[Rfam]
RNA sequence: UGCCACCACCAGCAGCACAGAAGUAAGGGUGGCAAUAUCAUACUAUGCCACCCUUACUUCUGUGCUGCUGCUGGCAGCA
Numbered sequence: 001u002g003c004c005a006c007c008a009c010c011a012g013c014a015g016c017a018c019a020g021a022a023g024u025a026a027g028g029g030u031g032g033c034a035a036u037a038u039c040a041u042a043c044u045a046u047g048c049c050a051c052c053c054u055u056a057c058u059u060c061u062g063u064g065c066u067g068c069u070g071c072u073g074g075c076a077g078c079a
Base pairs, nucleotide, nucleotide: 001079002078003077006074007073011069012068013067014066015065016064017063018062020059022058023057024056025055026054027053028052029051

This 79-nucleotide RNA sequence from Chelydra serpentina belongs to the Rfam family "mir-16 microRNA precursor family". The base pairs follow the family's consensus structure, which was predicted with PFOLD. The family is grouped with related families in Rfam's "mir-15 clan". Rfam links the family to the GO terms miRNA-mediated post-transcriptional gene silencing and RISC complex. Taxonomically the source falls in Chelydra (Eukaryota, Teleostomi, Durocryptodira, Chelydridae).